[Rfam]
RNA: Small nucleolar RNA Z278
Organism: Papaver somniferum
RNA sequence: GCCUAUGAUGAUGUCAUCCAAUUAGUUGAGGUGUAGUGGAACUGAGACCCUGUUUACAGGGAGAAGAACCCCUUUGAGAAACUGUAUUCGCAUGACAAUAAUGGAUCUGACUGAAGC
Numbered sequence: 001g002c003c004u005a006u007g008a009u010g011a012u013g014u015c016a017u018c019c020a021a022u023u024a025g026u027u028g029a030g031g032u033g034u035a036g037u038g039g040a041a042c043u044g045a046g047a048c049c050c051u052g053u054u055u056a057c058a059g060g061g062a063g064a065a066g067a068a069c070c071c072c073u074u075u076g077a078g079a080a081a082c083u084g085u086a087u088u089c090g091c092a093u094g095a096c097a098a099u100a101a102u103g104g105a106u107c108u109g110a111c112u113g114a115a116g117c
Stems, first nucleotide, its partner, number of pairs: 001117002048061005